[Rfam]
About this RNA:
The record is a 51-nucleotide RNA from Trabulsiella odontotermitis, which matches "algC RNA" in Rfam. Taxonomically the source falls in Trabulsiella (Bacteria, Pseudomonadati, Pseudomonadota, Enterobacterales). It scores 56 bits against the family's covariance model. By type it is a cis-regulatory element.

RNA sequence: UAAAAAAUGACCUGCGAGGGUCAGGGCUCACUGUUGCCUGAAAAAGGGUAA
Number, nucleotide and partner (000 for none) at each position: 001u000002a000003a000004a000005a000006a000007a000008u000009g022010a021011c020012c019013u000014g000015c000016g000017a000018g000019g012020g011021u010022c009023a000024g000025g000026g000027c000028u000029c000030a000031c000032u000033g000034u000035u000036g000037c000038c000039u000040g000041a000042a000043a000044a000045a000046g000047g000048g000049u000050a000051a000